[Rfam]
RNA sequence: AAAGCAGGUCUGCAAUUGCAGUGCUUCAUGUCUGUGGAGUGCUGUCAUUAUCCCUGCUGAGAACAUCUUUCUGCUGUGGAGCUCUUUCUCCUGAUCACUGCAUUAGUGAUCAGGGCGCUCUUUGGCUGAAACAUUC
Numbered sequence: 001a002a003a004g005c006a007g008g009u010c011u012g013c014a015a016u017u018g019c020a021g022u023g024c025u026u027c028a029u030g031u032c033u034g035u036g037g038a039g040u041g042c043u044g045u046c047a048u049u050a051u052c053c054c055u056g057c058u059g060a061g062a063a064c065a066u067c068u069u070u071c072u073g074c075u076g077u078g079g080a081g082c083u084c085u086u087u088c089u090c091c092u093g094a095u096c097a098c099u100g101c102a103u104u105a106g107u108g109a110u111c112a113g114g115g116c117g118c119u120c121u122u123u124g125g126c127u128g129a130a131a132c133a134u135u136c
Base pairs, nucleotide, nucleotide: 003058004057005056006055007054008053019044020043021042022041023040024039025038026037027036069130070129071128073126074125075124076123078121079120089115090114091113092112093111094110095109096108097107098106099105100104